[Rfam]
RNA: Small nucleolar RNA SNORD97
RNA sequence: UUGCCCGAUGAUUAUAAAAAGACGCGCAAAGAGGACAUAACGCUGGAGUUCUUUACCUUCUUUUCUCAUUUCUUCCUUUUUUCUACACUUCUGUUUCUUUCUUUGAAGUCCAGUGUCCUAUGAGCGAAGAUUAUGAGAUAUGAGGGCAA
Numbered sequence: 001u002u003g004c005c006c007g008a009u010g011a012u013u014a015u016a017a018a019a020a021g022a023c024g025c026g027c028a029a030a031g032a033g034g035a036c037a038u039a040a041c042g043c044u045g046g047a048g049u050u051c052u053u054u055a056c057c058u059u060c061u062u063u064u065c066u067c068a069u070u071u072c073u074u075c076c077u078u079u080u081u082u083c084u085a086c087a088c089u090u091c092u093g094u095u096u097c098u099u100u101c102u103u104u105g106a107a108g109u110c111c112a113g114u115g116u117c118c119u120a121u122g123a124g125c126g127a128a129g130a131u132u133a134u135g136a137g138a139u140a141u142g143a144g145g146g147c148a149a
Base pairs, nucleotide, nucleotide: 001149002148003147004146005145006144032052033051034050035049036048038046